[Rfam]
Overview
Shown here is a 158-nucleotide RNA from Polaromonas sp., a member of the family "Manganese Mn2+ riboswitch aptamer (yybP-ykoY)". From the family's description: This RNA was originally discovered in E. coli during a large scale screen and was named SraF. The family was later found to exist upstream of related families of protein genes in many bacteria, including the the yybP and ykoK genes in B. subtilis. The specific functions of these proteins are unknown, but this structured RNA element may be involved in their genetic regulation as a riboswitch. A search with the family's covariance model found it, with a score of 58 bits.
RNA sequence: AAGCCUGUCAUUGGGGAGUAGCCUGCCUUUAUCAACACGCGUUGAACGAGAGGCGUGUGCGUCAACAGACUUGUCUUGUUUUGCAAUAAAACCGACAUGGCGCACACAGUUAACAGACACGGCGUACGCCGUGGUUAGACCUGGCGAGACCUUUGACU
Dot-bracket structure: .........................(((((..................))))).((((((((((.......((((..................))))))))))))))((((((.......................................))))))